A member of the RNA family "small nucleolar RNA snoR126" from Momordica charantia, 101 nucleotides long. The family has 4 seed sequences and 423 matches in Rfam 15.1. Taxonomically the source falls in Momordica (Eukaryota, Tracheophyta, Euphyllophyta, Momordiceae). It scores 70 bits against the family's covariance model. The family's consensus secondary structure was predicted with RNAalifold.

RNA sequence: AGGCAGUGAUGAACAAACUACGUUUCUCGAUUCUGAUACUGUGUUACUUCACACACGGACCGAAUCUACCUGAUGACUGCGUUUGUGCGUGUCUGAGCCUU
Numbered sequence: 001a002g003g004c005a006g007u008g009a010u011g012a013a014c015a016a017a018c019u020a021c022g023u024u025u026c027u028c029g030a031u032u033c034u035g036a037u038a039c040u041g042u043g044u045u046a047c048u049u050c051a052c053a054c055a056c057g058g059a060c061c062g063a064a065u066c067u068a069c070c071u072g073a074u075g076a077c078u079g080c081g082u083u084u085g086u087g088c089g090u091g092u093c094u095g096a097g098c099c100u101u
Base pairs, nucleotide, nucleotide: 001100002099003098004097